A member of the RNA family "mir-1322 microRNA precursor family" from Cebus imitator, 69 nucleotides long. The family's consensus secondary structure was predicted with RNAalifold. The family has 3 seed sequences and 23 matches in Rfam 15.1. The source organism's lineage runs through Eukaryota, Boreoeutheria, Cebidae, Cebinae and Cebus. Rfam links the family to the GO terms miRNA-mediated post-transcriptional gene silencing and RISC complex.
RNA sequence: AGUAUCAUGAAUUAAAAACCUGCUUAUUACAUGGUAUACAUAAGAAGCAUGGUGAUGAUGCUGAUGCUG
Dot-bracket structure: (((((((...((((...(.((.(((((............))))).))..)..)))).....))))))).
Numbered sequence: 001a002g003u004a005u006c007a008u009g010a011a012u013u014a015a016a017a018a019c020c021u022g023c024u025u026a027u028u029a030c031a032u033g034g035u036a037u038a039c040a041u042a043a044g045a046a047g048c049a050u051g052g053u054g055a056u057g058a059u060g061c062u063g064a065u066g067c068u069g
Stems, first nucleotide, its partner, number of pairs: 001068007011056004018050001020047002023044005